[Rfam]
RNA sequence: UUUCCUCUCUGCCCCAUAGGGUGUAGCUCUAACUACCCUCUAGGGAAGAGAAGGUUGGG
Numbered sequence: 001u002u003u004c005c006u007c008u009c010u011g012c013c014c015c016a017u018a019g020g021g022u023g024u025a026g027c028u029c030u031a032a033c034u035a036c037c038c039u040c041u042a043g044g045g046a047a048g049a050g051a052a053g054g055u056u057g058g059g
Base pairs, nucleotide, nucleotide: 004054005053006052007050008049009048010047013045014044015043017042018041019040020039021038023036024035025034026033